[Rfam]
RNA sequence: CUUGAGCGAGCCGAGCCAGAGCGGCCGGUCCCGGUCCUGGCCGUAGGUGGCCAGGAGCGCCUGGGCCUC
Dot-bracket structure: ..............(((.....))).....(((...(((.(((....))).)))...)).....)....